[Rfam]
Nucleotides: 106
Stems, first nucleotide, its partner, number of pairs: 006098005016028004030086003033082002037080003043073004
Number, partner (000 for none) and nucleotide at each position: 001000u002000u003000a004000a005000a006098g007097g008096c009095u010094g011000g012000a013000a014000a015000a016028g017027g018026g019025c020000g021000u022000a023000a024000u025019g026018c027017c028016c029000u030086a031085c032084c033082g034081a035000c036000g037080g038079a039078g040000c041000a042000a043073g044072c045071g046070c047000u048000g049000g050000g051000a052000u053000c054000c055000c056000g057000g058000a059000u060000g061000a062000c063000g064000g065000g066000a067000a068000u069000c070046g071045c072044g073043u074000c075000a076000a077000u078039c079038u080037c081034u082033c083000a084032g085031g086030u087000c088000c089000c090000a091000c092000g093000a094010c095009a096008g097007c098006c099000g100000g101000g102000g103000g104000a105000c106000g

The family of this 106-nucleotide sequence from Parvularcula marina is "Glycine riboswitch aptamer". A search with the family's covariance model found it, with a score of 41 bits.